The family of this 105-nucleotide RNA from Abyssicoccus albus is "SAM riboswitch aptamer (S box leader)". The SAM riboswitch is found upstream of a number of genes which code for proteins involved in methionine or cysteine biosynthesis in Gram-positive bacteria. Taxonomically the source falls in Abyssicoccus (Bacteria, Bacillati, Bacillota, Caryophanales). Pairs were carried over by alignment from the consensus structure, which is taken from published work.
RNA sequence: CUCUUAUAUAGAGUGAGUGGAGGGACUUGGCCCUAUGAAACUCCAGCAACAGCUAUUUUUGAUAGCGAUGUGCUAAUUCCAACAGGUACGCCUGAAUGAUAAGAA
Numbered sequence: 001c002u003c004u005u006a007u008a009u010a011g012a013g014u015g016a017g018u019g020g021a022g023g024g025a026c027u028u029g030g031c032c033c034u035a036u037g038a039a040a041c042u043c044c045a046g047c048a049a050c051a052g053c054u055a056u057u058u059u060u061g062a063u064a065g066c067g068a069u070g071u072g073c074u075a076a077u078u079c080c081a082a083c084a085g086g087u088a089c090g091c092c093u094g095a096a097u098g099a100u101a102a103g104a105a
Stems, first nucleotide, its partner, number of pairs: 002104006013044001015043004022033003027082004045074004050070002052066004083094004